RNA sequence: AGUGAGUUUAGAGGUGCAAAAACCAUUAGUACACUUUUAGAGGAUGAUGAGAUCCUAUGAAAAAUGUGGAAAGGGGAAUUUGCCGAAGCGGCAUACUACUCACAAGUAUGUUGCUGGUUCUGUCAUUGAAUAAGUGCAGGACUGUCAUAUAGUUCAUUUUUAAUGACACUAUAUGGAGGGCUAUCUCACGC
Numbered sequence: 001a002g003u004g005a006g007u008u009u010a011g012a013g014g015u016g017c018a019a020a021a022a023c024c025a026u027u028a029g030u031a032c033a034c035u036u037u038u039a040g041a042g043g044a045u046g047a048u049g050a051g052a053u054c055c056u057a058u059g060a061a062a063a064a065u066g067u068g069g070a071a072a073g074g075g076g077a078a079u080u081u082g083c084c085g086a087a088g089c090g091g092c093a094u095a096c097u098a099c100u101c102a103c104a105a106g107u108a109u110g111u112u113g114c115u116g117g118u119u120c121u122g123u124c125a126u127u128g129a130a131u132a133a134g135u136g137c138a139g140g141a142c143u144g145u146c147a148u149a150u151a152g153u154u155c156a157u158u159u160u161u162a163a164u165g166a167c168a169c170u171a172u173a174u175g176g177a178g179g180g181c182u183a184u185c186u187c188a189c190g191c
Stems, first nucleotide, its partner, number of pairs: 006186001009183003016083005023076002032068003036064003087115011116143007124136004145176009